[Rfam]
A member of the RNA family "mir-9223 microRNA precursor family" from Myotis brandtii, 75 nucleotides long. The match comes from Rfam's covariance-model search (69 bits).

RNA sequence: GGUGGUUCGCGGGUGAUGCACCCCAGAAUCGGGCUCCCUCCUCUCUGGUUCCGGUUGCAUCACCCAAAAACCGCA
Numbered sequence: 001g002g003u004g005g006u007u008c009g010c011g012g013g014u015g016a017u018g019c020a021c022c023c024c025a026g027a028a029u030c031g032g033g034c035u036c037c038c039u040c041c042u043c044u045c046u047g048g049u050u051c052c053g054g055u056u057g058c059a060u061c062a063c064c065c066a067a068a069a070a071c072c073g074c075a
Stems, first nucleotide, its partner, number of pairs: 002074002005071003011065007019057002022054002026051008